[Rfam]
RNA sequence: AAAAAAGCAGGAUCCAUUGCCUUUUGUGGAUGGGUCUCUCGUUGACCUCAGGGAAAUUAUUACAUUAUCAUUGGGUGAACCUCUGUAAGCAUGUUAGUGGCAAAAGGUUCAAUAGAUAAUGACACAUUU
Numbered sequence: 001a002a003a004a005a006a007g008c009a010g011g012a013u014c015c016a017u018u019g020c021c022u023u024u025u026g027u028g029g030a031u032g033g034g035u036c037u038c039u040c041g042u043u044g045a046c047c048u049c050a051g052g053g054a055a056a057u058u059a060u061u062a063c064a065u066u067a068u069c070a071u072u073g074g075g076u077g078a079a080c081c082u083c084u085g086u087a088a089g090c091a092u093g094u095u096a097g098u099g100g101c102a103a104a105a106g107g108u109u110c111a112a113u114a115g116a117u118a119a120u121g122a123c124a125c126a127u128u129u
Stems, first nucleotide, its partner, number of pairs: 005048001007046001010037002013034004063121007076111007